[Rfam]
RNA sequence: ACACAAGAAGGGAGGUGAUCCGAGAUCGUGAAGACACUCGGGACCUGUGAGGUGGUCGCGCGCUAGUAGUCGCGCGACAUGAAGUCGGCGCGCCGGGCUAGCACGGCGCACGGGACUGGUGGCGAAUACAUCGUGACCACCGGGGCCCGCGGGUACCGCGCCCUCGUCCAGCGCGGUGCGGAGGUGCACGGCCUCCGGCCCCGCGGGCCUUUCCCU
Numbered sequence: 001a002c003a004c005a006a007g008a009a010g011g012g013a014g015g016u017g018a019u020c021c022g023a024g025a026u027c028g029u030g031a032a033g034a035c036a037c038u039c040g041g042g043a044c045c046u047g048u049g050a051g052g053u054g055g056u057c058g059c060g061c062g063c064u065a066g067u068a069g070u071c072g073c074g075c076g077a078c079a080u081g082a083a084g085u086c087g088g089c090g091c092g093c094c095g096g097g098c099u100a101g102c103a104c105g106g107c108g109c110a111c112g113g114g115a116c117u118g119g120u121g122g123c124g125a126a127u128a129c130a131u132c133g134u135g136a137c138c139a140c141c142g143g144g145g146c147c148c149g150c151g152g153g154u155a156c157c158g159c160g161c162c163c164u165c166g167u168c169c170a171g172c173g174c175g176g177u178g179c180g181g182a183g184g185u186g187c188a189c190g191g192c193c194u195c196c197g198g199c200c201c202c203g204c205g206g207g208c209c210u211u212u213c214c215c216u
Stems, first nucleotide, its partner, number of pairs: 015059005061124005067118001069116003074109003143210011156176006